[Rfam]
Shown here is a 52-nucleotide RNA from Asparagus officinalis, a member of the family "Plastid-ccsA-ndhD-1 3UTR RNA".
From the family's description: Plastid-ccsA-ndhD-1 is a non-coding RNA (ncRNA) recognised in plastids.
By type it is a cis-regulatory element.
Rfam 15.1 lists 1,322 matches to the family in 557 species.
RNA sequence: GGGUUUUUGAGAACCAUUUGAAUCAAGGAAUCAUUCAAAUGGUUCUCAAAAA
Dot-bracket structure: ......(((((((((((((((((.(.....).)))))))))))))))))...